[Rfam]
RNA sequence: UAAGUUUAAAUCAUUGUGAGUCUACAUUUUGAAAAUUGAACUCCCACAAAAUGGUGGGACAUACAUUAAUUUUAUCCAA
Numbered sequence: 001u002a003a004g005u006u007u008a009a010a011u012c013a014u015u016g017u018g019a020g021u022c023u024a025c026a027u028u029u030u031g032a033a034a035a036u037u038g039a040a041c042u043c044c045c046a047c048a049a050a051a052u053g054g055u056g057g058g059a060c061a062u063a064c065a066u067u068a069a070u071u072u073u074a075u076c077c078a079a
Base pairs, nucleotide, nucleotide: 001079004076006074008072009071010070011069013067015065016064017063018062022057023056024055025053026052027051028050029049030048031047
A member of the RNA family "MIR5269 microRNA precursor family" from Medicago truncatula, 79 nucleotides long. The organism belongs to Medicago, within Eukaryota. Rfam 15.1 lists 389 matches to the family in 6 species.